[Rfam]
RNA: L31-Actinobacteria ribosomal protein leader
RNA sequence: CAGGUUCCGGUUCACGCCCCGGUGCGGGCGACCCGGCGACC
Numbered sequence: 001c002a003g004g005u006u007c008c009g010g011u012u013c014a015c016g017c018c019c020c021g022g023u024g025c026g027g028g029c030g031a032c033c034c035g036g037c038g039a040c041c
Stems, first nucleotide, its partner, number of pairs: 003041003007036004015030005